Rfam assigns this 35-nucleotide sequence from Pongo abelii to the family "Iron response element I".

RNA sequence: GGGCUUCCUGCUUCAACAGUGCUUGAACGGAACCC
Numbered sequence: 001g002g003g004c005u006u007c008c009u010g011c012u013u014c015a016a017c018a019g020u021g022c023u024u025g026a027a028c029g030g031a032a033c034c035c
Stems, first nucleotide, its partner, number of pairs: 001035003005032004010028001012027005017021001
Rfam links the family to the GO term response to iron ion. The family has 62 seed sequences and 6,829 matches in Rfam 15.1. Pairs were carried over by alignment from the consensus structure, which is taken from published work. Lineage of the source: Eukaryota > Vertebrata > Amniota > Simiiformes > Pongo.